The record is a 155-nucleotide RNA sequence from Proteus hauseri, which matches "EFASI RNA" in Rfam.

RNA sequence: UGAGCUCGGUAUCGAUGGCAAUAUCAGCGAAAGCUGAUAGAUGGAGGUAGUCUGAUUUUAUUUAUCAGGACGGUUUAUACCGCGAACAGCUCUGAGAGCUGGGGAGCCUCGUAAAAACUCAACUUAUUGUCGCCUUGAUGCACAGAUACCCGCUA
Numbered sequence: 001u002g003a004g005c006u007c008g009g010u011a012u013c014g015a016u017g018g019c020a021a022u023a024u025c026a027g028c029g030a031a032a033g034c035u036g037a038u039a040g041a042u043g044g045a046g047g048u049a050g051u052c053u054g055a056u057u058u059u060a061u062u063u064a065u066c067a068g069g070a071c072g073g074u075u076u077a078u079a080c081c082g083c084g085a086a087c088a089g090c091u092c093u094g095a096g097a098g099c100u101g102g103g104g105a106g107c108c109u110c111g112u113a114a115a116a117a118c119u120c121a122a123c124u125u126a127u128u129g130u131c132g133c134c135u136u137g138a139u140g141c142a143c144a145g146a147u148a149c150c151c152g153c154u155a
Base pairs, nucleotide, nucleotide: 003154004153005152008150009149010148011147012146013145019043020042022039023038024037025036026035027034044110045109046108047107052068053067054066055065056064088100089099090098091097092096